[Rfam]
A member of the RNA family "SAM/SAH riboswitch aptamer" from Loktanella fryxellensis, 50 nucleotides long.
On this family, see Weickhmann et al., Nucleic Acids Res 2019: "The structure of the SAM/SAH-binding riboswitch".
RNA sequence: GACCCGCCACAACGGCUUCCUGACGUGGCGGGAUUGUACAUACCGGAGCA
Number, nucleotide and partner (000 for none) at each position: 001g000002a000003c000004c032005c031006g029007c028008c027009a026010c025011a000012a000013c022014g021015g049016c048017u047018u000019c046020c045021u014022g013023a000024c000025g010026u009027g008028g007029c006030g000031g005032g004033a000034u000035u000036g000037u000038a000039c000040a000041u000042a000043c000044c000045g020046g019047a017048g016049c015050a000

The family's consensus secondary structure is taken from published work.